[Rfam]
Nucleotides: 210
Stems, first nucleotide, its partner, number of pairs: 009192003015188006
Number, partner (000 for none) and nucleotide at each position: 001000u002000c003000c004000c005000c006000c007000a008000c009192a010191g011190u012000c013000c014000u015188c016187c017186g018185a019184a020183c021000u022000a023000a024000g025000u026000u027000u028000c029000u030000c031000g032000a033000a034000a035000g036000g037000g038000a039000u040000g041000u042000c043000u044000a045000u046000u047000g048000c049000a050000g051000a052000c053000a054000g055000c056000u057000c058000g059000u060000c061000u062000u063000u064000u065000u066000c067000u068000g069000g070000u071000u072000a073000c074000c075000c076000c077000u078000c079000c080000a081000u082000g083000u084000g085000u086000c087000g088000c089000u090000c091000u092000c093000g094000a095000g096000c097000c098000u099000g100000u101000a102000a103000c104000a105000g106000g107000a108000c109000c110000u111000c112000g113000u114000g115000a116000a117000u118000g119000c120000u121000g122000c123000a124000g125000c126000u127000g128000g129000a130000u131000c132000a133000u134000g135000g136000c137000g138000g139000g140000g141000a142000a143000c144000g145000c146000g147000u148000c149000c150000u151000g152000u153000a154000u155000a156000g157000g158000a159000u160000u161000u162000a163000c164000c165000a166000g167000g168000c169000a170000g171000a172000c173000g174000g175000g176000u177000a178000a179000c180000a181000a182000c183020g184019u185018u186017c187016g188015g189000a190011a191010c192009u193000u194000a195000a196000c197000c198000c199000u200000a201000a202000g203000c204000u205000u206000c207000a208000u209000a210000u

Rfam assigns this 210-nucleotide part of an RNA from Fusarium venenatum to the family "Ascomycota telomerase RNA". By type it is a non-coding RNA gene. The family has 4 seed sequences and 475 matches in Rfam 15.1. Rfam links the family to the GO terms telomere maintenance via telomerase, telomerase catalytic core complex and telomerase activity. The organism belongs to Fusarium sambucinum species complex, within Eukaryota.